[Rfam]
RNA sequence: AUGAUGACAGAGGGAGAGUUCGCAAGUUUCAAAGCGGCGCCGAAGGAGCAAGCACGACAUGUGUGAAUCUCUCAGGCAAAAGUACUUCUGUUUGACG
Numbered sequence: 001a002u003g004a005u006g007a008c009a010g011a012g013g014g015a016g017a018g019u020u021c022g023c024a025a026g027u028u029u030c031a032a033a034g035c036g037g038c039g040c041c042g043a044a045g046g047a048g049c050a051a052g053c054a055c056g057a058c059a060u061g062u063g064u065g066a067a068u069c070u071c072u073c074a075g076g077c078a079a080a081a082g083u084a085c086u087u088c089u090g091u092u093u094g095a096c097g
Base pairs, nucleotide, nucleotide: 006092007091008090009089010088011087012086013085020037021036022035023034039077040076041075042073043072046071047070048069052064053063
This 97-nucleotide sequence from Geomicrobium sp. JCM 19038 belongs to the Rfam family "Glycine riboswitch aptamer".